[Rfam]
RNA: c-di-GMP-I-GGC riboswitch aptamer
RNA sequence: UACGAUAACGGCAAACCUGUCGAAAGGCAGGGACGCAAAGCUACAGGGCCUUCCACGAGGAUGGCAGCCAGCUACCGAAA
Numbered sequence: 001u002a003c004g005a006u007a008a009c010g011g012c013a014a015a016c017c018u019g020u021c022g023a024a025a026g027g028c029a030g031g032g033a034c035g036c037a038a039a040g041c042u043a044c045a046g047g048g049c050c051u052u053c054c055a056c057g058a059g060g061a062u063g064g065c066a067g068c069c070a071g072c073u074a075c076c077g078a079a080a
Base pairs, nucleotide, nucleotide: 001080003077004076011036012035016031017030018029019028020027021026034067039073040072041071042070046069047068048065049064050063
Dot-bracket structure: (.((......((...((((((....))))))..[))..((((...(((((............))).]))))))..))..)